RNA sequence: ACACACAGCAUCGUACCUAGAGUCUGUCCCCAGACAUUGUACCUGGAGCUGUUAGGCCAGAAUUAAAGUGUUU
Numbered sequence: 001a002c003a004c005a006c007a008g009c010a011u012c013g014u015a016c017c018u019a020g021a022g023u024c025u026g027u028c029c030c031c032a033g034a035c036a037u038u039g040u041a042c043c044u045g046g047a048g049c050u051g052u053u054a055g056g057c058c059a060g061a062a063u064u065a066a067a068g069u070g071u072u073u
Base pairs, nucleotide, nucleotide: 005052006051007050008049009048017046018045019044020043022035023034024033025032026031

The record is a 73-nucleotide RNA from Loxodonta africana, which matches "U1A polyadenylation inhibition element (PIE)" in Rfam. Lineage of the source: Eukaryota > Opisthokonta > Eumetazoa > Gnathostomata > Loxodonta. Rfam's curators write: This family represents the U1A polyadenylation inhibition element (PIE). PIE is a regulatory RNA which is responsible for the regulation of the length of the polyA tail of the U1A pre-mRNA. The PIE is located in the U1A mRNA 3' UTR. PIE adopts a U-shaped structure, with binding sites for a single U1A protein at each bend and when complexed with the two proteins it blocks activity of poly(A) polymerase (PAP), and inhibits its activity. It is one of the family's seed sequences. On this family, see Clerte and Hall, Biochemistry 2004: "Global and Local Dynamics of the U1A Polyadenylation Inhibition Element (PIE) RNA and PIE RNA-U1A Complexes".